Shown here is a 268-nucleotide RNA sequence from Pseudomonas aeruginosa, a member of the family "rne-II RNA". Rfam's curators put it in the seed alignment.
RNA sequence: ACAUGUGUAGGGUGGAGAUGUACGGCUGUUGGACUGCGUAGCUUCUAGCUUGAUCCAGACGCAUUUUUCGUCCGCCUCCGACAGCCGAUUCCUCCUCCUGACUCAAGUGCUUCUGAAACACAGGAAGCAGGAGACGUAGUCGCGGACCGGCACCCAGUGCCGAGCGCCGCUGGACACGGGAAUGGCCCGCCAUUCCUGAAUACGCGCCCGAGCACCGACCGUGAGAGUCGUGUGUGCCGAUCGCCGUUUCCGGUAGCCCCGGAAACCA
Numbered sequence: 001a002c003a004u005g006u007g008u009a010g011g012g013u014g015g016a017g018a019u020g021u022a023c024g025g026c027u028g029u030u031g032g033a034c035u036g037c038g039u040a041g042c043u044u045c046u047a048g049c050u051u052g053a054u055c056c057a058g059a060c061g062c063a064u065u066u067u068u069c070g071u072c073c074g075c076c077u078c079c080g081a082c083a084g085c086c087g088a089u090u091c092c093u094c095c096u097c098c099u100g101a102c103u104c105a106a107g108u109g110c111u112u113c114u115g116a117a118a119c120a121c122a123g124g125a126a127g128c129a130g131g132a133g134a135c136g137u138a139g140u141c142g143c144g145g146a147c148c149g150g151c152a153c154c155c156a157g158u159g160c161c162g163a164g165c166g167c168c169g170c171u172g173g174a175c176a177c178g179g180g181a182a183u184g185g186c187c188c189g190c191c192a193u194u195c196c197u198g199a200a201u202a203c204g205c206g207c208c209c210g211a212g213c214a215c216c217g218a219c220c221g222u223g224a225g226a227g228u229c230g231u232g233u234g235u236g237c238c239g240a241u242c243g244c245c246g247u248u249u250c251c252g253g254u255a256g257c258c259c260c261g262g263a264a265a266c267c268a
Stems, first nucleotide, its partner, number of pairs: 014095004023087010036075003040050003058072004096132005135204004139175003142170004148162005179196007212235004216230004246266007

The family's RNA type in Rfam is cis-regulatory element.